A member of the RNA family "EcpR1" from Pseudorhodoplanes sinuspersici, 112 nucleotides long.
It scores 94 bits against the family's covariance model.

RNA sequence: AAACCCUACGGAAUGCUCAGGUCCGCCGCAUCUCCUGGGUCCGUGGGGUUCGGCCGGUCCGGGGGCGGUGACGAGUGGCCUCCUCAUGACACCGCUUCCGGCCGGCCACCUC
Dot-bracket structure: ..((((((((.....((((((............))))))..))))))))..((((((((.((..................................)).)))))))).....
A reference for the family is Wilms et al. (2012), "Deep sequencing uncovers numerous small RNAs on all four replicons of the plant pathogen Agrobacterium tumefaciens", RNA Biol. From the family's description: Perviously named SmelC291, SmrC10, or Sra33. According to its overproduction phenotype it was renamed Elongated Cell Phenotype RNA1. Induced by stress,EcpR1 negatively regulates cell cycle master regulatory genes dnaA and gcrA at post-transcriptional level by base pairing between its strongly conserved GC-rich loop and the target mRNAs. It's regulation is hfq-independent but requires RNase E to regulate dnaA. Gene Ontology terms of the family: mRNA binding, regulation of translation in response to stress and negative regulation of cell cycle.